[Rfam]
RNA: Bacterial RNase P class B
Nucleotides: 340
Base pairs, nucleotide, nucleotide: 004340005339006338007336008309009308010307011306012305013304014303016033017032018031019030020029021028038334039333040332042331043330044329045328046327047228048227049226050225051224052069053068054067055066056065057064075223076222077221078220079219080101081100082099083098084097085096102116103114104113105112106111117218118217121158122157123156129151130150131149135146136145137144166216167215168212169211170210182199184197185196186195187194188193232247233246234245251280252279253278254277255276256275281294282293283292284291285290311319312318
Number, partner (000 for none) and nucleotide at each position: 001000a002000c003000a004340c005339u006338u007336a008309g009308g010307c011306a012305a013304u014303c015000g016033c017032u018031g019030a020029u021028a022000g023000u024000a025000a026000u027000c028021u029020a030019u031018u032017a033016g034000a035000g036000g037000a038334a039333a040332g041000u042331c043330c044329a045328u046327g047228c048227u049226c050225g051224c052069a053068u054067a055066a056065u057064c058000u059000g060000a061000g062000a063000u064057g065056a066055u067054u068053a069052u070000a071000g072000u073000g074000u075223u076222u077221g078220u079219g080101c081100u082099a083098a084097c085096u086000u087000a088000a089000a090000a091000a092000a093000u094000a095000a096085g097084g098083u099082u100081a101080g102116a103114c104113a105112g106111g107000g108000u109000a110000a111106c112105c113104u114103g115000a116102u117218g118217g119000c120000u121158g122157c123156a124000a125000g126000u127000g128000a129151u130150u131149c132000u133000a134000a135146g136145g137144u138000u139000u140000u141000a142000u143000a144137a145136c146135u147000a148000u149131g150130a151129a152000a153000a154000a155000c156123u157122g158121c159000u160000a161000u162000a163000a164000a165000a166216g167215u168212g169211u170210c171000a172000a173000a174000g175000a176000g177000a178000c179000g180000a181000u182199u183000a184197a185196c186195u187194a188193g189000g190000a191000a192000a193188c194187u195186g196185g197184u198000g199182a200000u201000g202000u203000g204000g205000a206000a207000c208000g209000u210170g211169a212168u213000a214000a215167a216166c217118c218117c219079c220078a221077c222076a223075a224051g225050c226049g227048a228047g229000a230000a231000a232247c233246c234245c235000a236000a237000a238000u239000u240000u241000g242000g243000u244000a245234g246233g247232g248000g249000a250000a251280c252279u253278u254277a255276a256275a257000a258000u259000a260000u261000u262000g263000a264000a265000a266000u267000g268000a269000a270000a271000a272000u273000a274000g275256u276255u277254u278253a279252g280251g281294a282293c283292a284291c285290a286000g287000c288000a289000a290285u291284g292283u293282g294281u295000a296000g297000a298000u299000a300000a301000a302000u303014g304013a305012u306011u307010g308009c309008c310000a311319c312318c313000u314000u315000c316000g317000u318312g319311g320000u321000a322000c323000a324000g325000a326000a327046c328045a329044u330043g331042g332040c333039u334038u335000a336007u337000a338006a339005a340004g